[Rfam]
RNA sequence: GAUUGCACAUUCACACUACCUCUCUGUAAUCGCGGCUG
Numbered sequence: 001g002a003u004u005g006c007a008c009a010u011u012c013a014c015a016c017u018a019c020c021u022c023u024c025u026g027u028a029a030u031c032g033c034g035g036c037u038g
Stems, first nucleotide, its partner, number of pairs: 001031007
The record is a 38-nucleotide sequence, which matches "S4-Bacteroidia ribosomal protein leader" in Rfam.
Rfam classes the family as a cis-regulatory leader.
It is one of the family's seed sequences.
On this family, see Eckert and Weinberg, BMC Microbiol 2020: "Discovery of 20 novel ribosomal leader candidates in bacteria and archaea".